[Rfam]
RNA sequence: AUUUGCCUGGCUCCCUGGAUGCCAUUUAAGAAAAUAAUGUCAAGGUUUUGACUACUCUUCUUAUAUGGCACCUGAGGAGUCAGGCAAAC
Numbered sequence: 001a002u003u004u005g006c007c008u009g010g011c012u013c014c015c016u017g018g019a020u021g022c023c024a025u026u027u028a029a030g031a032a033a034a035u036a037a038u039g040u041c042a043a044g045g046u047u048u049u050g051a052c053u054a055c056u057c058u059u060c061u062u063a064u065a066u067g068g069c070a071c072c073u074g075a076g077g078a079g080u081c082a083g084g085c086a087a088a089c
Stems, first nucleotide, its partner, number of pairs: 002088005008082007016074003020070005027063003
The record is an 89-nucleotide RNA sequence from Helianthus annuus, which matches "mir-160 microRNA precursor family" in Rfam. Taxonomically the source falls in Helianthus (Eukaryota, Gunneridae, Asterales, Heliantheae).